ALIL pseudoknot: a 132-nucleotide RNA sequence from Geodermatophilus sp. DF01-2. Taxonomically the source falls in Geodermatophilus (Bacteria, Bacillati, Geodermatophilales, Geodermatophilaceae). The family's consensus secondary structure is taken from published work. The literature on the family includes a 2008 paper in J Biol Chem by Mazauric et al., "Apical loop-internal loop RNA pseudoknots: a new type of stimulator of -1 translational frameshifting in bacteria".
[Rfam]
RNA sequence: GGCGUUUUUCGCACAGGCGGAGCUCGACCGCCGACUCCGGUAAUCGUCUCCUACAUCGACGACUACCGGGGCCGGUUCGGGGUCGAGCCGAUCUGUGCCGUGCUCACCGAGCACGGCAUUCCGAUCGCCCCG
Numbered sequence: 001g002g003c004g005u006u007u008u009u010c011g012c013a014c015a016g017g018c019g020g021a022g023c024u025c026g027a028c029c030g031c032c033g034a035c036u037c038c039g040g041u042a043a044u045c046g047u048c049u050c051c052u053a054c055a056u057c058g059a060c061g062a063c064u065a066c067c068g069g070g071g072c073c074g075g076u077u078c079g080g081g082g083u084c085g086a087g088c089c090g091a092u093c094u095g096u097g098c099c100g101u102g103c104u105c106a107c108c109g110a111g112c113a114c115g116g117c118a119u120u121c122c123g124a125u126c127g128c129c130c131c132g
Stems, first nucleotide, its partner, number of pairs: 016032005078132005089127002092124002095121001